[Rfam]
RNA: c-di-GMP-I riboswitch aptamer
Organism: Geosporobacter ferrireducens
RNA sequence: GGAUGAAAAGGGCUAACCAUACGAAAGCAUGGGGCGCAAAGUCAGCAUCUAAAGUAUGUAUAUGCAUACCAUGAUCGAAGGACUGCCAUA
Number, nucleotide and partner (000 for none) at each position: 001g000002g000003a000004u000005g000006a000007a000008a000009a000010g000011g000012g037013c036014u000015a000016a000017c032018c031019a030020u029021a000022c027023g000024a000025a000026a000027g022028c000029a020030u019031g018032g017033g000034g000035c000036g013037c012038a000039a000040a084041g083042u082043c081044a000045g000046c000047a075048u074049c073050u000051a000052a000053a000054g069055u068056a067057u066058g065059u064060a000061u000062a000063u000064g059065c058066a057067u056068a055069c054070c000071a000072u000073g049074a048075u047076c000077g000078a000079a000080g000081g043082a042083c041084u040085g000086c000087c000088a000089u000090a000